[Rfam]
A member of the RNA family "c-di-GMP-II-GCG riboswitch aptamer", 86 nucleotides long. The family is grouped with related families in Rfam's "c-di-GMP_II riboswitch clan".
RNA sequence: CGACAACCGGGAAGCGUUGAUGCGUGGUCCACCGAACGGUCGCCUUCGGACCACGAGGAGCAGUGGCGAGCCCGAUCCCGAUCUGC
Numbered sequence: 001c002g003a004c005a006a007c008c009g010g011g012a013a014g015c016g017u018u019g020a021u022g023c024g025u026g027g028u029c030c031a032c033c034g035a036a037c038g039g040u041c042g043c044c045u046u047c048g049g050a051c052c053a054c055g056a057g058g059a060g061c062a063g064u065g066g067c068g069a070g071c072c073c074g075a076u077c078c079c080g081a082u083c084u085g086c
Stems, first nucleotide, its partner, number of pairs: 003084001005082001007080001009078003014061002023055007038073002040069005
The base pairs follow the family's consensus structure, which is taken from published work. Rfam's curators put it in the seed alignment.